Overview: Shown here is a 110-nucleotide RNA from Archaeoglobus profundus, a member of the family "HgcC family RNA". Rfam describes the family as follows. The HgcC ncRNA gene was identified computationally in AT-rich hyperthermophiles. The genes were named hgcA through hgcG ('high GC'). HgcC is of unknown function. Two other homologues were detected called HhcA and HhcB after 'homologue of hgcC'. This family contains a large number of putative archaeal matches to the 3' end of the known ncRNAs. Many of these partly overlap coding regions. The organism belongs to Archaeoglobus profundus, within Archaea. Rfam classes the family as a non-coding RNA gene.
RNA sequence: GAGGGUUGCUCUGACCCAACCCGAUGACACCAACCAACCCCGUAAUGGGGAGUUCCCCUAUGGGGAACCCUCGCACUUCAGUGCGGGGAGGAGGUCAGUCAAAUGUAUUC
Numbered sequence: 001g002a003g004g005g006u007u008g009c010u011c012u013g014a015c016c017c018a019a020c021c022c023g024a025u026g027a028c029a030c031c032a033a034c035c036a037a038c039c040c041c042g043u044a045a046u047g048g049g050g051a052g053u054u055c056c057c058c059u060a061u062g063g064g065g066a067a068c069c070c071u072c073g074c075a076c077u078u079c080a081g082u083g084c085g086g087g088g089a090g091g092a093g094g095u096c097a098g099u100c101a102a103a104u105g106u107a108u109u110c
Stems, first nucleotide, its partner, number of pairs: 003022006038050004052068005069088008